[Rfam]
RNA sequence: AUACGAAAAUACUCAACUACCCGCGAGGGUAGGGCGGAAAACCCACGGGUCUCUCUGAGACAGCCGGGCUACCGAA
Numbered sequence: 001a002u003a004c005g006a007a008a009a010u011a012c013u014c015a016a017c018u019a020c021c022c023g024c025g026a027g028g029g030u031a032g033g034g035c036g037g038a039a040a041a042c043c044c045a046c047g048g049g050u051c052u053c054u055c056u057g058a059g060a061c062a063g064c065c066g067g068g069c070u071a072c073c074g075a076a
Base pairs, nucleotide, nucleotide: 012037013036017032018031019030020029021028022027040070042068043067046066047065048064049061050060051059052058053057
The family of this 76-nucleotide sequence from Trichlorobacter lovleyi is "c-di-GMP-I riboswitch aptamer". Taxonomically the source falls in Trichlorobacter lovleyi (Bacteria, Pseudomonadati, Thermodesulfobacteriota, Geobacterales).